Shown here is a 77-nucleotide RNA sequence from Malus domestica, a member of the family "Small nucleolar RNA snoR53Y". The family has 7 seed sequences and 513 matches in Rfam 15.1. Its family is annotated with nucleolus and RNA processing in the Gene Ontology. The base pairs follow the family's consensus structure, which was predicted with WAR. Lineage of the source: Eukaryota > Euphyllophyta > Mesangiospermae > fabids > Malus. A reference for the family is Brown et al. (2001), "Multiple snoRNA gene clusters from Arabidopsis", RNA.

Nucleotides: 077
Stems, first nucleotide, its partner, number of pairs: 001076005
Number, partner (000 for none) and nucleotide at each position: 001076g002075u003074u004073c005072c006000c007000u008000g009000u010000g011000a012000u013000g014000c015000u016000u017000u018000u019000g020000a021000a022000c023000c024000a025000u026000g027000c028000u029000a030000a031000u032000c033000c034000u035000g036000a037000u038000u039000a040000u041000u042000u043000c044000a045000u046000g047000a048000u049000u050000a051000u052000a053000g054000u055000u056000u057000u058000c059000u060000a061000a062000a063000u064000a065000u066000u067000c068000u069000g070000a071000g072005g073004g074003a075002a076001c077000a